[Rfam]
RNA sequence: GCCGAGCUAAGUAGCACUAGCUUGUGACUCGAGCGAGGGCAUUAUGGUGGCUGGACAAUGGUUCGAUCCAUUUAGACAGGUUGAGUGAGCUGCGCUUGCUAGGUUGCCCGGUCCAAGUUGGGAGUUGGGUCAUGCAGCCCAAGCAAAGGCUUGGACUUCAUGGCUUGUAGAGUGGAGGGCACAGUGUCAGGCUGGUUUCACAGUGCAGCGAUAACCUCCCGCUCUCCACAGUGGAAGGAUUUCAAGCCGAUGCACUCUUGGGCCAUAUUGCCUGGUGACUCGAUUAGAUUGAACAACCACUUUU
Numbered sequence: 001g002c003c004g005a006g007c008u009a010a011g012u013a014g015c016a017c018u019a020g021c022u023u024g025u026g027a028c029u030c031g032a033g034c035g036a037g038g039g040c041a042u043u044a045u046g047g048u049g050g051c052u053g054g055a056c057a058a059u060g061g062u063u064c065g066a067u068c069c070a071u072u073u074a075g076a077c078a079g080g081u082u083g084a085g086u087g088a089g090c091u092g093c094g095c096u097u098g099c100u101a102g103g104u105u106g107c108c109c110g111g112u113c114c115a116a117g118u119u120g121g122g123a124g125u126u127g128g129g130u131c132a133u134g135c136a137g138c139c140c141a142a143g144c145a146a147a148g149g150c151u152u153g154g155a156c157u158u159c160a161u162g163g164c165u166u167g168u169a170g171a172g173u174g175g176a177g178g179g180c181a182c183a184g185u186g187u188c189a190g191g192c193u194g195g196u197u198u199c200a201c202a203g204u205g206c207a208g209c210g211a212u213a214a215c216c217u218c219c220c221g222c223u224c225u226c227c228a229c230a231g232u233g234g235a236a237g238g239a240u241u242u243c244a245a246g247c248c249g250a251u252g253c254a255c256u257c258u259u260g261g262g263c264c265a266u267a268u269u270g271c272c273u274g275g276u277g278a279c280u281c282g283a284u285u286a287g288a289u290u291g292a293a294c295a296a297c298c299a300c301u302u303u304u
Stems, first nucleotide, its partner, number of pairs: 001040003004023006028037003044303001046301005052295002056291002059287001061284003065280001069277004075272001077270002079264004084259002087256001089255001093252002100249001102247001104245003108238002112235004117229002120226006127166008136157002139154006174219005183212001185210003192203003
This 304-nucleotide RNA from Camellia sinensis belongs to the Rfam family "Plant signal recognition particle RNA". Pairs were carried over by alignment from the consensus structure, which is taken from published work. Rfam links the family to the GO terms SRP-dependent cotranslational protein targeting to membrane, signal sequence recognition and signal recognition particle, endoplasmic reticulum targeting. The source organism's lineage runs through Eukaryota, Streptophyta, Embryophyta, Pentapetalae and Camellia sinensis. By type it is a non-coding RNA gene.